[Rfam]
RNA sequence: UACUCGACAUUAGCUUUAGAAUUCCUACGCUUUACCUUUCUCGUACUGGCAAAGCGUUUGACUUCUGAAACUAAAGUCGA
Numbered sequence: 001u002a003c004u005c006g007a008c009a010u011u012a013g014c015u016u017u018a019g020a021a022u023u024c025c026u027a028c029g030c031u032u033u034a035c036c037u038u039u040c041u042c043g044u045a046c047u048g049g050c051a052a053a054g055c056g057u058u059u060g061a062c063u064u065c066u067g068a069a070a071c072u073a074a075a076g077u078c079g080a
Base pairs, nucleotide, nucleotide: 010074011073012072013071015069016068017067018066019065020064023061024060027057028056029055030054031053032052033051035049036048
RNA: mir-927 microRNA precursor family